Overview
A member of the RNA family "RtT RNA" from Enterobacteriaceae bacterium strain FGI 57, 134 nucleotides long. From the family's description: This family represents a bacterial cis-regulatory element known as RtT RNA. The exact function of RtT is unknown although it is thought that it may be involved in changing the cellular response in relation to amino acid starvation. The family's consensus secondary structure is taken from published work. Its family is annotated with cellular response to amino acid starvation in the Gene Ontology. On this family, see Bosl and Kersten, Nucleic Acids Res 1991: "A novel RNA product of the tyrT operon of Escherichia coli".
RNA sequence: UUGCGUCUGUAGCCAUGAGGAUGAGAACCUCCGGGGGCAGGGAGGUUCGACUCGAGCGAAGCGAGAGAACGUUGCGUCAGCAACGGCCCGCAGGGCGAGCCACGUAGUGGCGAGUUAUCCUCUAUCACCGACCA
Numbered sequence: 001u002u003g004c005g006u007c008u009g010u011a012g013c014c015a016u017g018a019g020g021a022u023g024a025g026a027a028c029c030u031c032c033g034g035g036g037g038c039a040g041g042g043a044g045g046u047u048c049g050a051c052u053c054g055a056g057c058g059a060a061g062c063g064a065g066a067g068a069a070c071g072u073u074g075c076g077u078c079a080g081c082a083a084c085g086g087c088c089c090g091c092a093g094g095g096c097g098a099g100c101c102a103c104g105u106a107g108u109g110g111c112g113a114g115u116u117a118u119c120c121u122c123u124a125u126c127a128c129c130g131a132c133c134a
Stems, first nucleotide, its partner, number of pairs: 015125002017122004022117001032097002046092001048090002053063002070085006